The record is a 67-nucleotide RNA sequence from Pipistrellus kuhlii, which matches "mir-9256 microRNA precursor family" in Rfam. The source organism's lineage runs through Eukaryota, Sarcopterygii, Chiroptera, Vespertilionidae and Pipistrellus. It scores 83 bits against the family's covariance model. Rfam 15.1 lists 31,772 matches to the family in 5 species.

RNA sequence: GCAUACACUGAGUGGCCAGAUUAUUAUGAUCUCUGAAGGCAUAAUAAUCUGGCCACUUAGUGUGCAU
Numbered sequence: 001g002c003a004u005a006c007a008c009u010g011a012g013u014g015g016c017c018a019g020a021u022u023a024u025u026a027u028g029a030u031c032u033c034u035g036a037a038g039g040c041a042u043a044a045u046a047a048u049c050u051g052g053c054c055a056c057u058u059a060g061u062g063u064g065c066a067u
Base pairs, nucleotide, nucleotide: 004064005063006062007061008060009059010058011057012056013055014054015053016052017051019049020048021047022046023045024044025043026042027041028040